RNA sequence: AUAAGGUCAUAUAACUGACGGAGCACGUGGAAUUAACCACAUGGAAGUAUGAUCAUUAAUCGCCGACCGUCUGGGCAAUCUGU
Dot-bracket structure: ..(.((((((((..(([[[[[.....((((......))))..))..)))))))).)...(.(((..]]]]]..))).).....
RNA: ZMP/ZTP riboswitch aptamer (pfl RNA motif)